RNA sequence: AUGAAGAUAGAAGGAGAGACUACGAAAUGUAGCGCCGAAGGAGCAAGCCAAAGAGGUGAAUCUCUCAGGCAAAAGUACUUCUAUUGGACG
Dot-bracket structure: .....((((((((......((((.....)))).(((((..(((...((.......))....))))).))).......)))))))).....
A member of the RNA family "Glycine riboswitch aptamer" from Tepidibacillus sp. HK-1, 90 nucleotides long. NCBI's taxonomy places the organism under Bacteria, Bacillati, Bacillota, Bacilli, Tepidibacillus. The pairing is the family consensus, mapped onto this sequence. A search with the family's covariance model found it, with a score of 73 bits.